The family of this 124-nucleotide RNA sequence from Vombatus ursinus is "Small nucleolar RNA SNORD22". The organism belongs to Vombatus, within Eukaryota. The literature on the family includes a 1994 paper in Science by Tycowski et al., "Requirement for intron-encoded U22 small nucleolar RNA in 18S ribosomal RNA maturation".
RNA sequence: UACCAAUGAGGAAAGGAAGCAUGUCUUAACCCCAGUCCUGGCCCCAGAGCCAGCAAUGGUGAACCCACUGGGGCUAGCUGGGGGAGAGGAGGAUGACCUGUUCAGAAGGAACUGUCUGAGGUAC
Numbered sequence: 001u002a003c004c005a006a007u008g009a010g011g012a013a014a015g016g017a018a019g020c021a022u023g024u025c026u027u028a029a030c031c032c033c034a035g036u037c038c039u040g041g042c043c044c045c046a047g048a049g050c051c052a053g054c055a056a057u058g059g060u061g062a063a064c065c066c067a068c069u070g071g072g073g074c075u076a077g078c079u080g081g082g083g084g085a086g087a088g089g090a091g092g093a094u095g096a097c098c099u100g101u102u103c104a105g106a107a108g109g110a111a112c113u114g115u116c117u118g119a120g121g122u123a124c
Stems, first nucleotide, its partner, number of pairs: 001123004